Rfam assigns this 296-nucleotide RNA from Sciurus vulgaris to the family "Mason-Pfizer monkey virus packaging signal". Pairs were carried over by alignment from the consensus structure, which was predicted with PFOLD. The family has 9 seed sequences and 2,921 matches in Rfam 15.1. The literature on the family includes a 2004 paper in Virus Res by Mustafa et al., "Mutational analysis of the predicted secondary RNA structure of the Mason-Pfizer monkey virus packaging signal". Rfam links the family to the GO term viral genome packaging. The match comes from Rfam's covariance-model search (142 bits). This family represents a group of sequences that are related to the Mason-Pfizer monkey virus (MPMV) packaging signal. The packaging signal is located in the 5' UTR and is required for specific RNA encapsidation. Lineage of the source: Eukaryota > Euteleostomi > Eutheria > Glires > Sciurus.

RNA sequence: UGGCGCCCAACGGUGUGGCUUUGGAUACGGGGGAAUUCGCAAGGGAAGUGGCGUGUAAGUGUUCGGCUGAAGAAGAAGAAGAAGAAAAAAAAAGUGAAAGUCAGUUCCACAAAGUUCGCCCCGGGAGCCUGCCACGCCAUUCUUAAAGGUACAGUAGCGCAUAACUAUGGGACAAGAAUUAAGUAAGCAUAAAUUUUUGUUAAGCAAUUAAAAGAGGUUUUAAAGACACGGGAAGUAAAGGUUAAGAGUAAUGAUUUUUUUAAGUUUUUUUGACCUUAUUAAGGACACCUGUCCGU
Numbered sequence: 001u002g003g004c005g006c007c008c009a010a011c012g013g014u015g016u017g018g019c020u021u022u023g024g025a026u027a028c029g030g031g032g033g034a035a036u037u038c039g040c041a042a043g044g045g046a047a048g049u050g051g052c053g054u055g056u057a058a059g060u061g062u063u064c065g066g067c068u069g070a071a072g073a074a075g076a077a078g079a080a081g082a083a084g085a086a087a088a089a090a091a092a093a094g095u096g097a098a099a100g101u102c103a104g105u106u107c108c109a110c111a112a113a114g115u116u117c118g119c120c121c122c123g124g125g126a127g128c129c130u131g132c133c134a135c136g137c138c139a140u141u142c143u144u145a146a147a148g149g150u151a152c153a154g155u156a157g158c159g160c161a162u163a164a165c166u167a168u169g170g171g172a173c174a175a176g177a178a179u180u181a182a183g184u185a186a187g188c189a190u191a192a193a194u195u196u197u198u199g200u201u202a203a204g205c206a207a208u209u210a211a212a213a214g215a216g217g218u219u220u221u222a223a224a225g226a227c228a229c230g231g232g233a234a235g236u237a238a239a240g241g242u243u244a245a246g247a248g249u250a251a252u253g254a255u256u257u258u259u260u261u262a263a264g265u266u267u268u269u270u271u272g273a274c275c276u277u278a279u280u281a282a283g284g285a286c287a288c289c290u291g292u293c294c295g296u
Stems, first nucleotide, its partner, number of pairs: 006033003013028003038051001039049002101148001105146002114141001120136001123133002155175001157173001160171001162169002180222003183218002229272004233267004239257006281296001283294004